Rfam assigns this 87-nucleotide RNA sequence from Hibiscus syriacus to the family "small nucleolar RNA snoR114".
Pairs were carried over by alignment from the consensus structure, which was predicted with RNAalifold.
Taxonomically the source falls in Hibiscus (Eukaryota, Mesangiospermae, Gunneridae, Malvoideae).
Rfam classes the family as a C/D-box small nucleolar RNA.
Gene Ontology terms of the family: RNA processing and nucleolus.
A reference for the family is Chen and Wu (2009), "Mining small RNA sequencing data: a new approach to identify small nucleolar RNAs in Arabidopsis", Nucleic Acids Res.

RNA sequence: AAGUAGUGAUGAACUGCCGCGCUUCCAAUGAAGAUAGGGUUCUUCACGAUGUCUGAUUCAAGACGACACUCCAGCGCUUCUGAACUU
Numbered sequence: 001a002a003g004u005a006g007u008g009a010u011g012a013a014c015u016g017c018c019g020c021g022c023u024u025c026c027a028a029u030g031a032a033g034a035u036a037g038g039g040u041u042c043u044u045c046a047c048g049a050u051g052u053c054u055g056a057u058u059c060a061a062g063a064c065g066a067c068a069c070u071c072c073a074g075c076g077c078u079u080c081u082g083a084a085c086u087u
Stems, first nucleotide, its partner, number of pairs: 001087004
Dot-bracket structure: ((((...............................................................................))))